RNA sequence: UCGGGCAACGCGGACGCCCGGUUAGACGACUUCCGUCCAAGCUCCGC
Numbered sequence: 001u002c003g004g005g006c007a008a009c010g011c012g013g014a015c016g017c018c019c020g021g022u023u024a025g026a027c028g029a030c031u032u033c034c035g036u037c038c039a040a041g042c043u044c045c046g047c
Stems, first nucleotide, its partner, number of pairs: 001021006010047005025037004
RNA: chrB-b RNA